[Rfam]
RNA sequence: AGCCUAACCUUUAUAGGUUUUCCUAUGAAGCAUGGUCCCAAACCCAUCCCUGAUAUUAAACUCCUCGUCAGAGCACUCAGGGAUGGGUCUAUAGCCGAAAGGUUAUAGGAUAGUCGAAAGACUGUC
Number, nucleotide and partner (000 for none) at each position: 001a000002g036003c035004c034005u000006a000007a000008c000009c030010u029011u028012u027013a026014u025015a024016g023017g022018u000019u000020u000021u000022c017023c016024u015025a014026u013027g012028a011029a010030g009031c000032a000033u000034g004035g003036u002037c000038c000039c000040a000041a000042a000043c087044c086045c085046a084047u083048c082049c081050c080051u079052g078053a077054u000055a000056u000057u000058a000059a000060a000061c000062u075063c000064c000065u000066c000067g000068u000069c000070a000071g000072a000073g000074c000075a062076c000077u053078c052079a051080g050081g049082g048083a047084u046085g045086g044087g043088u000089c108090u107091a106092u105093a104094g103095c102096c101097g000098a000099a000100a000101g096102g095103u094104u093105a092106u091107a090108g089109g126110a125111u124112a123113g122114u121115c000116g000117a000118a000119a000120g000121a114122c113123u112124g111125u110126c109

Shown here is a 126-nucleotide RNA, a member of the family "LOOT RNA". The family's RNA type in Rfam is small RNA.